[Rfam]
RNA sequence: GCCUUCUCCUGGCACACCCGCUUGAAAGACGGGGUCGCAAAGCCUCCGGUCUACCGCCCGAUCUCCGUCAUCGGGCCACGAUAGCGGGGUUGCCAAU
Numbered sequence: 001g002c003c004u005u006c007u008c009c010u011g012g013c014a015c016a017c018c019c020g021c022u023u024g025a026a027a028g029a030c031g032g033g034g035u036c037g038c039a040a041a042g043c044c045u046c047c048g049g050u051c052u053a054c055c056g057c058c059c060g061a062u063c064u065c066c067g068u069c070a071u072c073g074g075g076c077c078a079c080g081a082u083a084g085c086g087g088g089g090u091u092g093c094c095a096a097u
Stems, first nucleotide, its partner, number of pairs: 012038002017033004022029002041091004046087003049082003056076007
Source information: Rfam assigns this 97-nucleotide RNA from Roseateles saccharophilus to the family "c-di-GMP-I riboswitch aptamer". The organism belongs to Roseateles, within Bacteria. Rfam describes the family as follows. GEMM was predicted in a large-scale screen for bacterial structured RNA regulatory elements. Genes associated with GEMM are involved in a diverse array of functions, including chemotaxis regulation, signal transduction, secretion and chitin.